[Rfam]
RNA sequence: UCUGUUCACUCUCCCCAAAGACUUCAAGCAUUGCUGGGGUAGUGUCCAGGAUUGCUGCUGGAAGUCUUUGAGGGAGAGUGAGCAA
Numbered sequence: 001u002c003u004g005u006u007c008a009c010u011c012u013c014c015c016c017a018a019a020g021a022c023u024u025c026a027a028g029c030a031u032u033g034c035u036g037g038g039g040u041a042g043u044g045u046c047c048a049g050g051a052u053u054g055c056u057g058c059u060g061g062a063a064g065u066c067u068u069u070g071a072g073g074g075a076g077a078g079u080g081a082g083c084a085a
Stems, first nucleotide, its partner, number of pairs: 006081010016070010
Description: Shown here is an 85-nucleotide RNA sequence from Durio zibethinus, a member of the family "MIR473 microRNA precursor family". NCBI's taxonomy places the organism under Eukaryota, Embryophyta, Magnoliopsida, malvids, Durio. It scores 53 bits against the family's covariance model. The base pairs follow the family's consensus structure, which was predicted with WAR. On this family, see Lu et al., Plant Cell 2005: "Novel and mechanical stress-responsive MicroRNAs in Populus trichocarpa that are absent from Arabidopsis".